[Rfam]
RNA sequence: UCCUGUACUGAGCUGCCCCGAGGCCCUCAUCGUGCCCAGCUCGGGGCAGCUCAGUACAGGAU
Numbered sequence: 001u002c003c004u005g006u007a008c009u010g011a012g013c014u015g016c017c018c019c020g021a022g023g024c025c026c027u028c029a030u031c032g033u034g035c036c037c038a039g040c041u042c043g044g045g046g047c048a049g050c051u052c053a054g055u056a057c058a059g060g061a062u
Base pairs, nucleotide, nucleotide: 005057006056007055008054009053010052011051012050013049014048015047017045018044019043020042021041022040
RNA: mir-486 microRNA precursor family
Organism: Tupaia belangeri